[Rfam]
RNA: mir-BART3 microRNA precursor family
Organism: Lymphocryptovirus humangamma4
RNA sequence: UUUGGUGGGACCUGAUGCUGCUGGUGUGCUGUAAAUAAGUGCCUAGCACAUCACGUAGGCACCAGGUGUCACCAGG
Numbered sequence: 001u002u003u004g005g006u007g008g009g010a011c012c013u014g015a016u017g018c019u020g021c022u023g024g025u026g027u028g029c030u031g032u033a034a035a036u037a038a039g040u041g042c043c044u045a046g047c048a049c050a051u052c053a054c055g056u057a058g059g060c061a062c063c064a065g066g067u068g069u070c071a072c073c074a075g076g
Base pairs, nucleotide, nucleotide: 001076002075003074004073005072006071007070008069010067011066012065013064014063016061017060018058019057020056022053023052025050026049027048028047029046030045031044032041033040